[Rfam]
RNA sequence: CAAUAAGGUAGAGGUGCAUCGGUUGAAAGAGUAUCGUUUGUAAACGACAGUGGAAGUGAUGAUCAGACGGGAAAGGUCCCGAUGCCGAAGCUUUCGAUAUCCACAGUAUCGCUAGCUGGUGUGCUGUUGAAGAAACAGUACACUGUCACUACAAAUGAGUAGUGGAGCACUAUCCGAUUG
Numbered sequence: 001c002a003a004u005a006a007g008g009u010a011g012a013g014g015u016g017c018a019u020c021g022g023u024u025g026a027a028a029g030a031g032u033a034u035c036g037u038u039u040g041u042a043a044a045c046g047a048c049a050g051u052g053g054a055a056g057u058g059a060u061g062a063u064c065a066g067a068c069g070g071g072a073a074a075g076g077u078c079c080c081g082a083u084g085c086c087g088a089a090g091c092u093u094u095c096g097a098u099a100u101c102c103a104c105a106g107u108a109u110c111g112c113u114a115g116c117u118g119g120u121g122u123g124c125u126g127u128u129g130a131a132g133a134a135a136c137a138g139u140a141c142a143c144u145g146u147c148a149c150u151a152c153a154a155a156u157g158a159g160u161a162g163u164g165g166a167g168c169a170c171u172a173u174c175c176g177a178u179u180g
Stems, first nucleotide, its partner, number of pairs: 007174005016085007034070007089117004095111006118144011146165007
This 180-nucleotide sequence from Texcoconibacillus texcoconensis belongs to the Rfam family "Lysine riboswitch aptamer". Riboswitches are metabolite binding domains within certain messenger RNAs that serve as precision sensors for their corresponding targets. NCBI's taxonomy places the organism under Bacteria, Bacillota, Bacilli, Bacillaceae, Texcoconibacillus. It scores 113 bits against the family's covariance model.